[Rfam]
RNA: Whalefall-1 RNA
RNA sequence: UUCCCUCUCCCUCGGGAGAGGUCGAAAGUCCGGUACGGACUUUCGGGUGAGGGG
Numbered sequence: 001u002u003c004c005c006u007c008u009c010c011c012u013c014g015g016g017a018g019a020g021g022u023c024g025a026a027a028g029u030c031c032g033g034u035a036c037g038g039a040c041u042u043u044c045g046g047g048u049g050a051g052g053g054g
Stems, first nucleotide, its partner, number of pairs: 004021007024044009
Dot-bracket structure: ...(((((((....)))))))..(((((((((...)))))))))..........